[Rfam]
RNA sequence: GGUUUUAACCCAGUUACUCAAGGUACGCUGGAGUUCCGACCUUUCGCAAGAGAGCGUCGAACAACUAUAAUUUUUGGAAACGCUCUACCGGGGUUAUCCGGAAGGGCAGC
Dot-bracket structure: ......((((..(((((.....))).)).))..)).(((((((((....))))).))))........................(.(.(...((....))....).).)..

A member of the RNA family "SL2 RNA" from Caenorhabditis brenneri, 110 nucleotides long. The family's consensus secondary structure is taken from published work. This family represents SL2 RNA. SL2 RNA is involved in trans splicing in lower eukaryotes. Trans-splicing is a form of RNA processing. The acquisition of a spliced leader from a SL RNA is a intra-molecular reaction which precisely joins exons derived from separately transcribed RNAs. Approximately 25% of C. elegans genes are organised into polycistronic transcription units and the presence of SL2 on an mRNA is an indication the the gene is in an operon. On this family, see Evans and Blumenthal, Mol Cell Biol 2000: "trans splicing of polycistronic Caenorhabditis elegans pre-mRNAs: analysis of the SL2 RNA".